[Rfam]
RNA sequence: AGCGCAGACCGCUCUAUCGCUUUUCCCGAUUCGUCGGGGAAGGAGGAAAGUCCGGGCAACGCAGGGCACCAAGUUUCUUAAUGGGAAGGCGGGCGAAAGCUUGCAGUAGUGUAGCAGAAAAUAACCGCCCCGAGUACUCGGGGUAAGGGUGAAAAGGUGAGGUAAGAGCUCACCGGUUCCGGGGGUGACUUCGGAAGCCGUACACCUCUUGGGUUGCAAGACCAAAUAUAUCACGACCAGGGGCGGCCCGUCCCAUUCCGACUUAGUCGGAAGUCGUGAGGGGUAGGUUGCUAGAUCGUAGCAGUGAUGCUGUGGCCAGAUAAAUGAUAGAGGCUCUUCGUUUUUUACGGAGAGUACAGAACCCGGCUUACAGGUCUGCGUUUUUU
Number, nucleotide and partner (000 for none) at each position: 001a382002g381003c380004g379005c378006a377007g376008a375009c374010c373011g371012c332013u331014c330015u329016a328017u327018c326019g000020c043021u042022u041023u040024u039025c038026c037027c036028g035029a000030u000031u000032c000033g000034u000035c028036g027037g026038g025039g024040a023041a022042g021043g020044a000045g000046g000047a000048a369049a368050g367051u000052c366053c365054g364055g363056g362057c216058a215059a214060c213061g000062c000063a000064g000065g000066g264067c000068a000069c212070c211071a210072a209073g208074u088075u087076u086077c085078u084079u000080a000081a000082u000083g000084g078085g077086a076087a075088g074089g104090c000091g102092g101093g100094c099095g000096a000097a000098a000099g094100c093101u092102u091103g000104c089105a207106g206107u000108a000109g205110u204111g203112u202113a201114g000115c000116a000117g000118a000119a000120a000121a000122u000123a000124a000125c148126c147127g144128c143129c142130c141131c140132g139133a138134g000135u000136a000137c000138u133139c132140g131141g130142g129143g128144u127145a000146a000147g126148g125149g000150u000151g000152a000153a000154a000155a000156g174157g173158u172159g171160a170161g169162g000163u000164a000165a000166g000167a000168g000169c161170u160171c159172a158173c157174c156175g000176g198177u196178u195179c194180c193181g192182g191183g190184g189185g000186u000187g000188a000189c184190u183191u182192c181193g180194g179195a178196a177197g000198c176199c000200g000201u113202a112203c111204a110205c109206c106207u105208c073209u072210u071211g070212g069213g060214u059215u058216g057217c000218a000219a000220g289221a288222c287223c286224a000225a000226a000227u000228a000229u000230a000231u279232c278233a277234c276235g275236a000237c000238c000239a000240g000241g000242g000243g000244c000245g000246g000247c000248c000249c000250g000251u000252c000253c000254c000255a000256u000257u271258c270259c269260g268261a267262c000263u000264u066265a000266g000267u261268c260269g259270g258271a257272a000273g000274u000275c235276g234277u233278g232279a231280g000281g000282g000283g000284u000285a000286g223287g222288u221289u220290g000291c000292u000293a000294g000295a000296u315297c314298g313299u312300a311301g310302c309303a308304g000305u000306g000307a000308u303309g302310c301311u300312g299313u298314g297315g296316c000317c000318a000319g000320a000321u000322a000323a000324a000325u000326g018327a017328u016329a015330g014331a013332g012333g000334c000335u000336c000337u000338u000339c000340g000341u000342u000343u000344u000345u000346u000347a000348c000349g000350g000351a000352g000353a000354g000355u000356a000357c000358a000359g000360a000361a000362c056363c055364c054365g053366g052367c050368u049369u048370a000371c011372a000373g010374g009375u008376c007377u006378g005379c004380g003381u002382u001383u000384u000385u000386u000
This 386-nucleotide sequence from Sunxiuqinia dokdonensis belongs to the Rfam family "Bacterial RNase P class A". The base pairs follow the family's consensus structure, which is taken from published work. By type it is a ribozyme. Gene Ontology terms of the family: ribonuclease P activity, tRNA processing and dimeric ribonuclease P complex. It scores 251 bits against the family's covariance model. The source organism's lineage runs through Bacteria, Pseudomonadati, Marinilabiliales, Prolixibacteraceae and Sunxiuqinia.